[Rfam]
Nucleotides: 072
Stems, first nucleotide, its partner, number of pairs: 002071001004069004010063004018057004024052003027048005034041002
Number, partner (000 for none) and nucleotide at each position: 001000c002071c003000g004069g005068u006067g007066c008000c009000u010063g011062g012061c013060a014000c015000a016000u017000a018057g019056g020055a021054g022000u023000u024052u025051c026050a027048u028047a029046a030045a031044u032000g033000u034041a035040u036000u037000u038000u039000c040035a041034u042000u043000a044031a045030u046029u047028u048027a049000u050026u051025g052024a053000u054021c055020u056019c057018c058000a059000a060013u061012g062011c063010c064000u065000a066007g067006c068005a069004c070000a071002g072000u
The record is a 72-nucleotide RNA from Monodelphis domestica, which matches "mir-1542 microRNA precursor family" in Rfam. Pairs were carried over by alignment from the consensus structure, which was predicted with RNAalifold. Its family is annotated with miRNA-mediated post-transcriptional gene silencing and RISC complex in the Gene Ontology.